Annotation:
A member of the RNA family "Small nucleolar RNA Z256" from Oryza rufipogon, 94 nucleotides long. NCBI's taxonomy places the organism under Eukaryota, Petrosaviidae, commelinids, Poaceae, Oryza. Its family is annotated with RNA processing and nucleolus in the Gene Ontology. For this family Rfam cites "The high diversity of snoRNAs in plants: identification and comparative study of 120 snoRNA genes from Oryza sativa" (Chen et al., Nucleic Acids Res, 2003).
[Rfam]
RNA sequence: ACUUGCCAAUUAUGUUAACACCAUCCACUAGGGCUUGGUUGACUGGCCUCCCCGAGUAUACCAUCAACAGCUGGGCCGAGCUGAAGGCUCGGUU
Numbered sequence: 001a002c003u004u005g006c007c008a009a010u011u012a013u014g015u016u017a018a019c020a021c022c023a024u025c026c027a028c029u030a031g032g033g034c035u036u037g038g039u040u041g042a043c044u045g046g047c048c049u050c051c052c053c054g055a056g057u058a059u060a061c062c063a064u065c066a067a068c069a070g071c072u073g074g075g076c077c078g079a080g081c082u083g084a085a086g087g088c089u090c091g092g093u094u
Stems, first nucleotide, its partner, number of pairs: 003092003007087001
Dot-bracket structure: ..(((.(...............................................................................)..)))..